[Rfam]
A member of the RNA family "Mammalian CPEB3 ribozyme" from Alligator sinensis, 68 nucleotides long.
RNA sequence: ACAGGAUCAAGGCUGUAGCAGAAAUGGUCAUGGCCGUGUCAGAUUUCAGCAAAUCUGUGAAUUCUGUU
Number, nucleotide and partner (000 for none) at each position: 001a000002c000003a000004g000005g000006a000007u000008c036009a000010a000011g035012g034013c033014u032015g000016u000017a068018g067019c066020a065021g064022a063023a062024a031025u030026g000027g000028u000029c000030a025031u024032g014033g013034c012035c011036g008037u000038g000039u000040c057041a056042g055043a054044u053045u052046u051047c000048a000049g000050c000051a046052a045053a044054u043055c042056u041057g040058u000059g000060a000061a000062u023063u022064c021065u020066g019067u018068u017

The organism belongs to Alligator, within Eukaryota. It scores 40 bits against the family's covariance model.